[Rfam]
This 343-nucleotide sequence from Croceibacterium mercuriale belongs to the Rfam family "Alphaproteobacteria transfer-messenger RNA". Rfam classes the family as a non-coding RNA gene. A search with the family's covariance model found it, with a score of 222 bits. A reference for the family is Williams and Bartel (1996), "Phylogenetic analysis of tmRNA secondary structure", RNA.

RNA sequence: CCACUUCACAAUUCAUUUGAAGGCGCUAUAUCACCCGUGCCGGUCUCGACCGGAUAUGGCGAUAAAUAGUGGUGUGUAAUAGACACAGCGGACCCGGGGGCAGUACCCGGCGGCUCCACCACCACCAGCGGGCGACUGCUGUUGAUGACGGGGCCGAACCAGGAUCGACGUGUGUUAAAAGACAUCGUUUUUGCUCGGGCUGAGUAACCCGCAUAAGGCUCAAAACACACAAGUGCCAACGAUAACGAAGCACUCGCAAUCGCUGCGUAACCUGACGGCCUAACGGCCUGAUCUUACAAAGCUAAAGCGCGGUUGGACCCACCGGGCAACAGAAGGGAUUCCA
Numbered sequence: 001c002c003a004c005u006u007c008a009c010a011a012u013u014c015a016u017u018u019g020a021a022g023g024c025g026c027u028a029u030a031u032c033a034c035c036c037g038u039g040c041c042g043g044u045c046u047c048g049a050c051c052g053g054a055u056a057u058g059g060c061g062a063u064a065a066a067u068a069g070u071g072g073u074g075u076g077u078a079a080u081a082g083a084c085a086c087a088g089c090g091g092a093c094c095c096g097g098g099g100g101c102a103g104u105a106c107c108c109g110g111c112g113g114c115u116c117c118a119c120c121a122c123c124a125c126c127a128g129c130g131g132g133c134g135a136c137u138g139c140u141g142u143u144g145a146u147g148a149c150g151g152g153g154c155c156g157a158a159c160c161a162g163g164a165u166c167g168a169c170g171u172g173u174g175u176u177a178a179a180a181g182a183c184a185u186c187g188u189u190u191u192u193g194c195u196c197g198g199g200c201u202g203a204g205u206a207a208c209c210c211g212c213a214u215a216a217g218g219c220u221c222a223a224a225a226c227a228c229a230c231a232a233g234u235g236c237c238a239a240c241g242a243u244a245a246c247g248a249a250g251c252a253c254u255c256g257c258a259a260u261c262g263c264u265g266c267g268u269a270a271c272c273u274g275a276c277g278g279c280c281u282a283a284c285g286g287c288c289u290g291a292u293c294u295u296a297c298a299a300a301g302c303u304a305a306a307g308c309g310c311g312g313u314u315g316g317a318c319c320c321a322c323c324g325g326g327c328a329a330c331a332g333a334a335g336g337g338a339u340u341c342c343a
Stems, first nucleotide, its partner, number of pairs: 040053004058195005069188007084174003088171003094110005111156007196211004201222003310324004315342003320337001